[Rfam]
RNA sequence: UCUCCCAUAGCUCAGUCGGUAGAGCGACGGACUGUUAAUCCGCAGGUCCCUGGUUCGAGCCCAGGUGGGAGAG
Numbered sequence: 001u002c003u004c005c006c007a008u009a010g011c012u013c014a015g016u017c018g019g020u021a022g023a024g025c026g027a028c029g030g031a032c033u034g035u036u037a038a039u040c041c042g043c044a045g046g047u048c049c050c051u052g053g054u055u056c057g058a059g060c061c062c063a064g065g066u067g068g069g070a071g072a073g
Stems, first nucleotide, its partner, number of pairs: 001072007010025004028042004049065005